The record is a 71-nucleotide RNA sequence from Wuchereria bancrofti, which matches "tRNA" in Rfam. Its family is annotated with triplet codon-amino acid adaptor activity in the Gene Ontology.

RNA sequence: GGAGUUGUAGUUUAAUGGUAAAACAAGGUACUCUAAACACCUGUUCGUAGGUUCGAUUCCUACCAGCUUCA
Number, nucleotide and partner (000 for none) at each position: 001g070002g069003a068004g067005u066006u065007g064008u000009a000010g024011u023012u022013u021014a000015a000016u000017g000018g000019u000020a000021a013022a012023a011024c010025a000026a042027g041028g040029u039030a000031c000032u000033c000034u000035a000036a000037a000038c000039a029040c028041c027042u026043g000044u000045u000046c000047g063048u062049a061050g060051g059052u000053u000054c000055g000056a000057u000058u000059c051060c050061u049062a048063c047064c007065a006066g005067c004068u003069u002070c001071a000
The family's RNA type in Rfam is transfer RNA. The base pairs follow the family's consensus structure, which is taken from published work.